The family of this 48-nucleotide RNA from Aquibium carbonis is "Guanidine-II riboswitch aptamer (mini-ykkC)".
The literature on the family includes a 2007 paper in Nucleic Acids Res by Weinberg et al., "Identification of 22 candidate structured RNAs in bacteria using the CMfinder comparative genomics pipeline".
From the family's description: Simpler in structure and has fewer highly conserved nucleotide positions than the ykkC-yxkD leader.
The family's consensus secondary structure is taken from published work.
The source organism's lineage runs through Bacteria, Pseudomonadati, Pseudomonadota, Alphaproteobacteria and Aquibium.

RNA sequence: GUGCCGGGACGACCCGGAAUUCGCCGAAGAUCGGUGGGGACGACCCCA
Numbered sequence: 001g002u003g004c005c006g007g008g009a010c011g012a013c014c015c016g017g018a019a020u021u022c023g024c025c026g027a028a029g030a031u032c033g034g035u036g037g038g039g040a041c042g043a044c045c046c047c048a
Stems, first nucleotide, its partner, number of pairs: 001020002004017005035048005